[Rfam]
RNA sequence: AACAUGGUUUUCUAGGGUUCCACAGUUUAUAACUGGAUAGGUCCAAGAGAAAACGCACAGUUUACUGUGUACACGGAAGGAUAAAAGCCUGGGAGAU
Number, nucleotide and partner (000 for none) at each position: 001a000002a000003c000004a000005u000006g000007g054008u053009u052010u051011u050012c049013u000014a000015g044016g043017g000018u000019u000020c041021c040022a038023c035024a034025g033026u032027u031028u000029a000030u000031a027032a026033c025034u024035g023036g000037a000038u022039a000040g021041g020042u000043c016044c015045a000046a000047g000048a000049g012050a011051a010052a009053a008054c007055g070056c069057a068058c067059a066060g065061u000062u000063u000064a000065c060066u059067g058068u057069g056070u055071a000072c092073a000074c095075g000076g000077a000078a090079g089080g088081a000082u000083a000084a000085a000086a000087g000088c080089c079090u078091g000092g072093g000094a000095g074096a000097u000